The record is a 48-nucleotide RNA from Altererythrobacter sp. BO-6, which matches "chrB-b RNA" in Rfam. The family's consensus secondary structure is taken from published work. It scores 37 bits against the family's covariance model.
[Rfam]
RNA sequence: GCGGGACUCAGCAACCUCCCGGUCAGGCUGCAAUAGCCCAAGCGUUGC
Dot-bracket structure: .(((((....[[[[[.)))))....(((((...))))).....]]]]]